Shown here is a 66-nucleotide RNA sequence from Paraburkholderia sp. DHOC27, a member of the family "Fluoride riboswitch aptamer (crcB RNA motif)".
Rfam 15.1 lists 2,293 matches to the family in 1,982 species.
The family's consensus secondary structure is taken from published work.
[Rfam]
RNA sequence: GUACUUACUGGAGAUGGCAUUCUCCCUAACUGCCGGGCGGUGCCGGCUGAUGAUGCCUGCUAAAUG
Numbered sequence: 001g002u003a004c005u006u007a008c009u010g011g012a013g014a015u016g017g018c019a020u021u022c023u024c025c026c027u028a029a030c031u032g033c034c035g036g037g038c039g040g041u042g043c044c045g046g047c048u049g050a051u052g053a054u055g056c057c058u059g060c061u062a063a064a065u066g
Stems, first nucleotide, its partner, number of pairs: 010025004016057006032047004